RNA sequence: AGCUGGAGGGAUUCCUGGCAGAGUGAUUUGGGAUUAUAUCAUAAAAUCACAUUGCCAGGGAUUUCCAACCAGCU
Numbered sequence: 001a002g003c004u005g006g007a008g009g010g011a012u013u014c015c016u017g018g019c020a021g022a023g024u025g026a027u028u029u030g031g032g033a034u035u036a037u038a039u040c041a042u043a044a045a046a047u048c049a050c051a052u053u054g055c056c057a058g059g060g061a062u063u064u065c066c067a068a069c070c071a072g073c074u
Stems, first nucleotide, its partner, number of pairs: 001074002004071003009066002011062011023050007